[Rfam]
RNA sequence: UUGUAAAAGUCUGGGCAGCAGCUGUGCCUGCGUGAAAGCUUGCUUGCACGCAGGCACAGAUAUUGCCCAGGCUACCCCAUAUGAACAAGUAGGCCGAUAGGCCGGAUUGUGAAUAUGGGGGGGAUUGCGGGAGCGCGAAGCGCGGAGCAAUCCACUUUUACAA
Numbered sequence: 001u002u003g004u005a006a007a008a009g010u011c012u013g014g015g016c017a018g019c020a021g022c023u024g025u026g027c028c029u030g031c032g033u034g035a036a037a038g039c040u041u042g043c044u045u046g047c048a049c050g051c052a053g054g055c056a057c058a059g060a061u062a063u064u065g066c067c068c069a070g071g072c073u074a075c076c077c078c079a080u081a082u083g084a085a086c087a088a089g090u091a092g093g094c095c096g097a098u099a100g101g102c103c104g105g106a107u108u109g110u111g112a113a114u115a116u117g118g119g120g121g122g123g124a125u126u127g128c129g130g131g132a133g134c135g136c137g138a139a140g141c142g143c144g145g146a147g148c149a150a151u152c153c154a155c156u157u158u159u160a161c162a163a
Stems, first nucleotide, its partner, number of pairs: 001163007011070004017064002020061001022059011034047001036045003075120008085110004092103004122153007133143004
RNA: Clostridiales-1 RNA